[Rfam]
RNA sequence: CUCUGGCACCCCUCACUACGGAUCGUCCGGCACGUACCUGCCGGUGAGAGGAACGACAU
Numbered sequence: 001c002u003c004u005g006g007c008a009c010c011c012c013u014c015a016c017u018a019c020g021g022a023u024c025g026u027c028c029g030g031c032a033c034g035u036a037c038c039u040g041c042c043g044g045u046g047a048g049a050g051g052a053a054c055g056a057c058a059u
Base pairs, nucleotide, nucleotide: 009051010050012048013047014046015045027044028043029042030041031040032039
The record is a 59-nucleotide RNA from Cellulomonas aerilata, which matches "msiK RNA" in Rfam.
A search with the family's covariance model found it, with a score of 65 bits.
Rfam 15.1 lists 1,374 matches to the family in 1,364 species.
The base pairs follow the family's consensus structure, which is taken from published work.
Taxonomically the source falls in Cellulomonas (Bacteria, Actinomycetota, Actinomycetes, Cellulomonadaceae).
The family's RNA type in Rfam is cis-regulatory element.